This 107-nucleotide sequence from Hymenobacter radioresistens belongs to the Rfam family "SAM riboswitch aptamer (S box leader)".
Its family is annotated with regulation of gene expression in the Gene Ontology.

RNA sequence: UACUUAUCCAGAAAGACCGAGGGAAUGGGCCCUAUGACGUCUUAGCAACCUGAAUCAAAACAAGGUGCUAACUCCCUUUCUGCCUCUCUGGCAGAAGAAGAUAAGUG
Numbered sequence: 001u002a003c004u005u006a007u008c009c010a011g012a013a014a015g016a017c018c019g020a021g022g023g024a025a026u027g028g029g030c031c032c033u034a035u036g037a038c039g040u041c042u043u044a045g046c047a048a049c050c051u052g053a054a055u056c057a058a059a060a061c062a063a064g065g066u067g068c069u070a071a072c073u074c075c076c077u078u079u080c081u082g083c084c085u086c087u088c089u090g091g092c093a094g095a096a097g098a099a100g101a102u103a104a105g106u107g
Base pairs, nucleotide, nucleotide: 001107002106003105004104005103006102007101008100013043014042015041016040017039021032022031023030027076028075029074044069045068046067047066049065050064052061073099078096079095080094081093082092083091